[Rfam]
RNA: terC RNA
Organism: Allobosea sp. Leaf344
RNA sequence: CAGCCGGUCCGGGCCCCUCUGGCGACCCAUGGUCGUGAUGUCGGACCAAUCGC
Number, nucleotide and partner (000 for none) at each position: 001c000002a000003g000004c000005c000006g047007g046008u045009c044010c043011g042012g041013g000014c000015c000016c000017c000018u000019c000020u000021g000022g036023c035024g034025a033026c032027c031028c000029a000030u000031g027032g026033u025034c024035g023036u022037g000038a000039u000040g000041u012042c011043g010044g009045a008046c007047c006048a000049a000050u000051c000052g000053c000